Eukaryotic large subunit ribosomal RNA: a 283-nucleotide part of an RNA from Cucumis melo.

RNA sequence: GAGUCUGACAUGUGUGUGAGUUAACAGGUGAGUAAUCUCGUAAGACGCAUGGAACCUAGCUGGUGUAUCCCUUAGUGGGUUGCACCACCGACCAACCUUGGUCUUCAGAGAAGGGUUCGAUUGUGAGCAUGUCUAUCGAGACCCAAAAGAUGGUGAAUUAUACCUUAGUGAGGCAAAGUCAGAUGAAACUCUGAUGGAUGCUCGUAGCGAUACUAAAGUGCAAAUCAGACAUCUGACUUGGGUAUAAGGGCGAAAGACUAAUUGAAUCGUAUAGUAGCUAGUU
Number, nucleotide and partner (000 for none) at each position: 001g000002a000003g000004u000005c000006u138007g137008a136009c000010a134011u000012g132013u131014g130015u129016g128017u127018g000019a000020g046021u045022u044023a000024a000025c040026a000027g038028g037029u000030g000031a000032g000033u000034a000035a000036u000037c028038u027039c000040g025041u000042a000043a000044g022045a021046c020047g000048c000049a000050u000051g056052g000053a000054a000055c000056c051057u000058a000059g000060c000061u000062g089063g088064u087065g086066u000067a000068u000069c000070c000071c079072u000073u000074a000075g000076u000077g000078g000079g071080u000081u000082g000083c000084a000085c000086c065087a064088c063089c062090g000091a122092c000093c119094a000095a117096c115097c114098u113099u000100g000101g000102u109103c108104u000105u000106c000107a000108g103109a102110g000111a000112a000113g098114g097115g096116u000117u095118c000119g093120a000121u000122u091123g000124u000125g000126a000127g017128c016129a015130u014131g013132u012133c000134u010135a000136u008137c007138g006139a000140g000141a000142c281143c000144c000145a000146a000147a000148a000149g000150a270151u269152g268153g267154u266155g000156a000157a000158u247159u246160a245161u244162a243163c242164c241165u240166u000167a238168g237169u235170g000171a000172g202173g201174c200175a000176a000177a000178g195179u194180c193181a192182g191183a190184u000185g000186a000187a000188a000189c000190u183191c182192u181193g180194a179195u178196g000197g000198a000199u000200g174201c173202u172203c000204g000205u000206a000207g232208c000209g230210a000211u000212a000213c000214u000215a000216a225217a000218g000219u000220g000221c000222a000223a000224a000225u216226c000227a000228g000229a000230c209231a000232u207233c000234u000235g169236a000237c168238u167239u000240g165241g164242g163243u162244a161245u160246a159247a158248g000249g259250g258251c000252g000253a000254a000255a000256g000257a000258c250259u249260a000261a000262u000263u000264g000265a000266a154267u153268c152269g151270u150271a000272u000273a000274g000275u000276a000277g000278c000279u000280a000281g142282u000283u000
The base pairs follow the family's consensus structure, which is taken from published work.